Annotation: Rfam assigns this 599-nucleotide part of an RNA from Thermoanaerobacterium thermosaccharolyticum to the family "Bacterial large subunit ribosomal RNA". Rfam's curators put it in the seed alignment.
[Rfam]
RNA sequence: AAGGAACUCGGCAAAAAGACUCCGUAACUUCGGGAGAAGGAGUGCCGAAAGGCCGCAGAGAAGAGGCCCAAGCGACUGUUUACCAAAAACACAGGUUUCUGCUAAGUCGAAAGACGAAGUAUAGGAGCUGACGCCUGCCCGGUGCUGGAAGGUUAAGGGGAAGUGUUAUCCGGCACUCAACUAUACCUAUUAGGAGUGAAAGAAAUGUAUUAUGUCUAUAUAAUAAAGAACGAAAAUGGAGGCAUAUAUACAGGCUAUUCAGAAAAUAUAAGGAAAAGACUAGAAGCUCAUAAUAAAGAGCUAAACAAAUAUACAAAGGGGCAUAAAUGGGAACUAAUAUACUAUGAAGCAUAUAAAGCAAAAGAAGAUGCCCAAAAAAGAGAAAAACAAUUAAAAAAAUCCCAUAAUGCAAGAAGAUGGUUAAAAGAAAGAAUAGCCAAAAGCAUAAACUCUUAGUAGAUAGAGUUGAGUGCCGGAGAAGCACAGAACUUAAGCCCCAGUAAACGGCGGCCGUAACUAUAACGGUCCUAAGGUAGCGAAAUUCCUUGUCGGGUAAGUUCCGACCUGCACGAAAGGCGUAACGACUUGGGCGCUGUCUU
Numbered sequence: 001a002a003g004g005a006a007c008u009c010g011g012c013a014a015a016a017a018g019a020c021u022c023c024g025u026a027a028c029u030u031c032g033g034g035a036g037a038a039g040g041a042g043u044g045c046c047g048a049a050a051g052g053c054c055g056c057a058g059a060g061a062a063g064a065g066g067c068c069c070a071a072g073c074g075a076c077u078g079u080u081u082a083c084c085a086a087a088a089a090c091a092c093a094g095g096u097u098u099c100u101g102c103u104a105a106g107u108c109g110a111a112a113g114a115c116g117a118a119g120u121a122u123a124g125g126a127g128c129u130g131a132c133g134c135c136u137g138c139c140c141g142g143u144g145c146u147g148g149a150a151g152g153u154u155a156a157g158g159g160g161a162a163g164u165g166u167u168a169u170c171c172g173g174c175a176c177u178c179a180a181c182u183a184u185a186c187c188u189a190u191u192a193g194g195a196g197u198g199a200a201a202g203a204a205a206u207g208u209a210u211u212a213u214g215u216c217u218a219u220a221u222a223a224u225a226a227a228g229a230a231c232g233a234a235a236a237u238g239g240a241g242g243c244a245u246a247u248a249u250a251c252a253g254g255c256u257a258u259u260c261a262g263a264a265a266a267u268a269u270a271a272g273g274a275a276a277a278g279a280c281u282a283g284a285a286g287c288u289c290a291u292a293a294u295a296a297a298g299a300g301c302u303a304a305a306c307a308a309a310u311a312u313a314c315a316a317a318g319g320g321g322c323a324u325a326a327a328u329g330g331g332a333a334c335u336a337a338u339a340u341a342c343u344a345u346g347a348a349g350c351a352u353a354u355a356a357a358g359c360a361a362a363a364g365a366a367g368a369u370g371c372c373c374a375a376a377a378a379a380g381a382g383a384a385a386a387a388c389a390a391u392u393a394a395a396a397a398a399a400u401c402c403c404a405u406a407a408u409g410c411a412a413g414a415a416g417a418u419g420g421u422u423a424a425a426a427g428a429a430a431g432a433a434u435a436g437c438c439a440a441a442a443g444c445a446u447a448a449a450c451u452c453u454u455a456g457u458a459g460a461u462a463g464a465g466u467u468g469a470g471u472g473c474c475g476g477a478g479a480a481g482c483a484c485a486g487a488a489c490u491u492a493a494g495c496c497c498c499a500g501u502a503a504a505c506g507g508c509g510g511c512c513g514u515a516a517c518u519a520u521a522a523c524g525g526u527c528c529u530a531a532g533g534u535a536g537c538g539a540a541a542u543u544c545c546u547u548g549u550c551g552g553g554u555a556a557g558u559u560c561c562g563a564c565c566u567g568c569a570c571g572a573a574a575g576g577c578g579u580a581a582c583g584a585c586u587u588g589g590g591c592g593c594u595g596u597c598u599u
Stems, first nucleotide, its partner, number of pairs: 002598003019043005028033001044053003054058001066591007073583002077091003094129008102119001106115003132578004137508003142505002144501005151496003157490002163484004169477014509527006528532001538565001548564006